A member of the RNA family "mir-210 microRNA precursor family" from Melopsittacus undulatus, 97 nucleotides long. Rfam 15.1 lists 790 matches to the family in 722 species. The source organism's lineage runs through Eukaryota, Chordata, Archelosauria, Aves and Melopsittacus. The literature on the family includes a 2005 paper in Genes Dev by Chen et al., "The developmental miRNA profiles of zebrafish as determined by small RNA cloning". Gene Ontology terms of the family: RISC complex and miRNA-mediated post-transcriptional gene silencing.
[Rfam]
RNA sequence: UCCAGGAGCAGGUGAGCCACUGACUAACGCACAUUGUGCUCUCGGCGACUCCACUGUGCGUGUGACAGCGGCUAACCUGCUCCUCGGACACCGCUGU
Numbered sequence: 001u002c003c004a005g006g007a008g009c010a011g012g013u014g015a016g017c018c019a020c021u022g023a024c025u026a027a028c029g030c031a032c033a034u035u036g037u038g039c040u041c042u043c044g045g046c047g048a049c050u051c052c053a054c055u056g057u058g059c060g061u062g063u064g065a066c067a068g069c070g071g072c073u074a075a076c077c078u079g080c081u082c083c084u085c086g087g088a089c090a091c092c093g094c095u096g097u
Base pairs, nucleotide, nucleotide: 005083006082007081008080009079010078011077012076015073016072017071018070020068021067022066024064025062026061028060029059030058031057032056033055035053036052